[Rfam]
RNA sequence: UGGUGGCUCCAACCGGGACUAAAGGUCCCCGCCCAACGGCCACUGCGCCCAGAUGAGGUGGUGGGGGACCUUUAGUCCCGGUUGGAGCCACCAA
Numbered sequence: 001u002g003g004u005g006g007c008u009c010c011a012a013c014c015g016g017g018a019c020u021a022a023a024g025g026u027c028c029c030c031g032c033c034c035a036a037c038g039g040c041c042a043c044u045g046c047g048c049c050c051a052g053a054u055g056a057g058g059u060g061g062u063g064g065g066g067g068a069c070c071u072u073u074a075g076u077c078c079c080g081g082u083u084g085g086a087g088c089c090a091c092c093a094a
Stems, first nucleotide, its partner, number of pairs: 003091025029065002032063001034061001036059002043052002
RNA: MIR5387 microRNA precursor family